[Rfam]
RNA sequence: UGUGACCCUAGAAUAAUUACCCAACGUCUCUGAGUCUCGGUUUUGAGAGGGUGAGUAAUUAUUCUAGGGUCACA
Numbered sequence: 001u002g003u004g005a006c007c008c009u010a011g012a013a014u015a016a017u018u019a020c021c022c023a024a025c026g027u028c029u030c031u032g033a034g035u036c037u038c039g040g041u042u043u044u045g046a047g048a049g050g051g052u053g054a055g056u057a058a059u060u061a062u063u064c065u066a067g068g069g070u071c072a073c074a
Base pairs, nucleotide, nucleotide: 001074002073003072004071005070006069007068008067009066010065011064012063013062014061015060016059017058018057019056020055022053023052025050027048028047029046030045
This 74-nucleotide sequence from Homo sapiens belongs to the Rfam family "mir-7973 microRNA precursor family". Its family is annotated with miRNA-mediated post-transcriptional gene silencing and RISC complex in the Gene Ontology. The family's consensus secondary structure was predicted with RNAalifold. It is one of the family's seed sequences.